About this RNA
The family of this 64-nucleotide RNA from Anaerocolumna chitinilytica is "GP20-b RNA". A search with the family's covariance model found it, with a score of 40 bits. The organism belongs to Anaerocolumna, within Bacteria.
[Rfam]
RNA sequence: GGUCAGCGUAUUAGACCUAAAACAGUCGGUCACUGGUGGAUAGUAAAACACCUUAAAAAACUUA
Numbered sequence: 001g002g003u004c005a006g007c008g009u010a011u012u013a014g015a016c017c018u019a020a021a022a023c024a025g026u027c028g029g030u031c032a033c034u035g036g037u038g039g040a041u042a043g044u045a046a047a048a049c050a051c052c053u054u055a056a057a058a059a060a061c062u063u064a
Stems, first nucleotide, its partner, number of pairs: 001017004010026003035052004